[Rfam]
RNA sequence: AUAAAUUUUUUGUCGAAUACUCGUAUAAAGUUGGGGAUAUGGCCCGAAAGUUUCUACCAAGCUACCGUAAAUAGCUUGACUACGAGGUGAUUGUAAGGAUCA
Numbered sequence: 001a002u003a004a005a006u007u008u009u010u011u012g013u014c015g016a017a018u019a020c021u022c023g024u025a026u027a028a029a030g031u032u033g034g035g036g037a038u039a040u041g042g043c044c045c046g047a048a049a050g051u052u053u054c055u056a057c058c059a060a061g062c063u064a065c066c067g068u069a070a071a072u073a074g075c076u077u078g079a080c081u082a083c084g085a086g087g088u089g090a091u092u093g094u095a096a097g098g099a100u101c102a
Base pairs, nucleotide, nucleotide: 020086021085022084023083024082025081031047032046033045034044035043058078059077060076061075062074063073064072